[Rfam]
RNA sequence: GACGGGGCACGAAAGGCUCUGUGGAGAACGACAUAGGGGCGACCCUACAGUAGGACCCGCAGAGAGCCGGUGUUCCGUCGUGCGUUUUGAAAAACGA
Numbered sequence: 001g002a003c004g005g006g007g008c009a010c011g012a013a014a015g016g017c018u019c020u021g022u023g024g025a026g027a028a029c030g031a032c033a034u035a036g037g038g039g040c041g042a043c044c045c046u047a048c049a050g051u052a053g054g055a056c057c058c059g060c061a062g063a064g065a066g067c068c069g070g071u072g073u074u075c076c077g078u079c080g081u082g083c084g085u086u087u088u089g090a091a092a093a094a095c096g097a
Base pairs, nucleotide, nucleotide: 001079002078003077004076005075006074007073008072009071010070015068016067019062020061021060022059023058024057029053034047035046036045037044038043083096084095085094

The record is a 97-nucleotide part of an RNA from Salinirubellus salinus, which matches "Archaeal large subunit ribosomal RNA" in Rfam. NCBI's taxonomy places the organism under Archaea, Methanobacteriati, Methanobacteriota, Natronomonadaceae, Salinirubellus.